The family of this 45-nucleotide sequence from Streptomyces sp. ISL-11 is "Guanidine-II riboswitch aptamer (mini-ykkC)". A reference for the family is Huang et al. (2017), "The Structure of the Guanidine-II Riboswitch", Cell Chem Biol. Pairs were carried over by alignment from the consensus structure, which is taken from published work.
[Rfam]
RNA sequence: CCGAGGACGACCUCGACGCGGAGGAUCUCGACGAGGACGACCUCG
Numbered sequence: 001c002c003g004a005g006g007a008c009g010a011c012c013u014c015g016a017c018g019c020g021g022a023g024g025a026u027c028u029c030g031a032c033g034a035g036g037a038c039g040a041c042c043u044c045g
Stems, first nucleotide, its partner, number of pairs: 002015005032045005